[Rfam]
RNA sequence: CCCGCCAAGCCUCUCUACGAUGCUCAAACCGGCGGGC
Numbered sequence: 001c002c003c004g005c006c007a008a009g010c011c012u013c014u015c016u017a018c019g020a021u022g023c024u025c026a027a028a029c030c031g032g033c034g035g036g037c
Base pairs, nucleotide, nucleotide: 001036002035003034004033005032006031008024009023010022
Dot-bracket structure: ((((((.(((...........)))......)))))).
A member of the RNA family "abiF RNA", 37 nucleotides long. The family's RNA type in Rfam is small RNA. Rfam's curators write: Actinobacteria, Bacteroidetes, Clostridia, Proteobacteria, one Clostridia phage.